This 83-nucleotide RNA belongs to the Rfam family "Small nucleolar RNA Z159/U59". Rfam links the family to the GO terms nucleolus and RNA processing. Clan: SNORD59 clan. The family's consensus secondary structure was predicted with PFOLD.

RNA sequence: GUCUCCGACGAUGUAAAUUUAUACUUUCGUUCUUCUGAAGUUGGCAAUGUGGAAGAACUAUCUGGAGACCUGAACUGGGGGUU
Numbered sequence: 001g002u003c004u005c006c007g008a009c010g011a012u013g014u015a016a017a018u019u020u021a022u023a024c025u026u027u028c029g030u031u032c033u034u035c036u037g038a039a040g041u042u043g044g045c046a047a048u049g050u051g052g053a054a055g056a057a058c059u060a061u062c063u064g065g066a067g068a069c070c071u072g073a074a075c076u077g078g079g080g081g082u083u
Base pairs, nucleotide, nucleotide: 003081004080005079006078
The family's RNA type in Rfam is C/D-box small nucleolar RNA.